[Rfam]
RNA sequence: AAAAAGCAUCAAGAACGCGAAUGCGUACCAACCGACAGCUCGUUGCACGGUGGUUUAGAAUGCGGGGGUCCUCCCAAAUUAACGAGAAAU
Numbered sequence: 001a002a003a004a005a006g007c008a009u010c011a012a013g014a015a016c017g018c019g020a021a022u023g024c025g026u027a028c029c030a031a032c033c034g035a036c037a038g039c040u041c042g043u044u045g046c047a048c049g050g051u052g053g054u055u056u057a058g059a060a061u062g063c064g065g066g067g068g069u070c071c072u073c074c075c076a077a078a079u080u081a082a083c084g085a086g087a088a089a090u
Stems, first nucleotide, its partner, number of pairs: 006063004015026004027054003032050003036045002040086001065075004
Dot-bracket structure: .....((((.....((((....))))(((..(((.((..[...))..))).))).....)))).((((...))))..........]....

A member of the RNA family "SAM-I/IV (S-adenosyl methionine) riboswitch aptamer", 90 nucleotides long.
Pairs were carried over by alignment from the consensus structure, which is taken from published work.
Its Rfam clan is "SAM clan".